The family of this 93-nucleotide RNA sequence from Weissella paramesenteroides is "THF (Tetrahydrofolate) riboswitch aptamer".
Taxonomically the source falls in Weissella paramesenteroides (Bacteria, Bacillati, Lactobacillales, Weissella).
Rfam describes the family as follows. Tetrahydrofolate (THF) riboswitch was first reported for Ames et al. as an RNA motif in 5' untranslated (5'-UTR)regions of folate transport and biosynthesis genes in Firmicutes genomes.
A reference for the family is Ames et al. (2010), "A eubacterial riboswitch class that senses the coenzyme tetrahydrofolate", Chem Biol.
It scores 69 bits against the family's covariance model.
The base pairs follow the family's consensus structure, which is taken from published work.
RNA sequence: CACAGGGUAGAUUGAGACGCGUUAAGUGCCAUAGAAACGGAAUGUGGGCUAUGGACGAAGGAUUACCGCGAUGUCUUGAUCACAUUCACUGUA
Numbered sequence: 001c002a003c004a005g006g007g008u009a010g011a012u013u014g015a016g017a018c019g020c021g022u023u024a025a026g027u028g029c030c031a032u033a034g035a036a037a038c039g040g041a042a043u044g045u046g047g048g049c050u051a052u053g054g055a056c057g058a059a060g061g062a063u064u065a066c067c068g069c070g071a072u073g074u075c076u077u078g079a080u081c082a083c084a085u086u087c088a089c090u091g092u093a
Stems, first nucleotide, its partner, number of pairs: 002092004010081010020070003026056002029054006040087005060067002
Dot-bracket structure: .((((....(((((((((((((...((.((((((.....[[[[[....))))))))...((....))))).)))))))))).]]]]].)))).